The family of this 57-nucleotide RNA is "DUF3800-VI RNA". The base pairs follow the family's consensus structure, which is taken from published work.
RNA sequence: CGGUCGAGAGGGCUGUGAUAUUUACCGUCCGCUGUGGACAGGUUCCACACUCGGCUG
Dot-bracket structure: ((((((((.((((.((.......)).))))..(((((.......)))))))))))))